This 184-nucleotide RNA sequence from Paenibacillus lemnae belongs to the Rfam family "Group II catalytic intron D1-D4-5". The literature on the family includes a 2001 paper in EMBO J by Chu et al., "Control of branch-site choice by a group II intron". From the family's description: Group II introns are found in rRNA, tRNA and mRNA of organelles in fungi, plants and protists, and also in mRNA in bacteria. Pairs were carried over by alignment from the consensus structure.
RNA sequence: UCUAACUUUCUAUCCGAGGACAGGAAUGAUGAAUCCAAGUUUUCUGAAACUGUCCCGUUGAGACUCCUACAUGCUUUCUGUUCGGCAGGAACAAAAGGUAUGAAGCUAGGUGAAGUCGGCAGAAGGAAGGCUGAAGCCGCCUGCAAAGGAAGGUAUGCUAACUGAUAUGCCGGAUGGCUGAAAA
Numbered sequence: 001u002c003u004a005a006c007u008u009u010c011u012a013u014c015c016g017a018g019g020a021c022a023g024g025a026a027u028g029a030u031g032a033a034u035c036c037a038a039g040u041u042u043u044c045u046g047a048a049a050c051u052g053u054c055c056c057g058u059u060g061a062g063a064c065u066c067c068u069a070c071a072u073g074c075u076u077u078c079u080g081u082u083c084g085g086c087a088g089g090a091a092c093a094a095a096a097g098g099u100a101u102g103a104a105g106c107u108a109g110g111u112g113a114a115g116u117c118g119g120c121a122g123a124a125g126g127a128a129g130g131c132u133g134a135a136g137c138c139g140c141c142u143g144c145a146a147a148g149g150a151a152g153g154u155a156u157g158c159u160a161a162c163u164g165a166u167a168u169g170c171c172g173g174a175u176g177g178c179u180g181a182a183a184a
Stems, first nucleotide, its partner, number of pairs: 018055006031045001033043001056176004066110004070102008079093005117172005125163002129159002131148002137143001